Source information: Shown here is a 75-nucleotide sequence from Streptomyces hainanensis, a member of the family "ASpks TB sRNA". Taxonomically the source falls in Streptomyces (Bacteria, Bacillati, Actinomycetes, Streptomycetaceae). By type it is an antisense RNA.
[Rfam]
RNA sequence: CUUGACCGAGCCCAGCCACAAUGGCUGAUCCUUGGGCCGCUCCUGCCCAUAGGUCGCCAACAGCGCCUGCGCCUC
Numbered sequence: 001c002u003u004g005a006c007c008g009a010g011c012c013c014a015g016c017c018a019c020a021a022u023g024g025c026u027g028a029u030c031c032u033u034g035g036g037c038c039g040c041u042c043c044u045g046c047c048c049a050u051a052g053g054u055c056g057c058c059a060a061c062a063g064c065g066c067c068u069g070c071g072c073c074u075c
Stems, first nucleotide, its partner, number of pairs: 014026004031071001033069001038065002044059002047056001049054001
It scores 81 bits against the family's covariance model.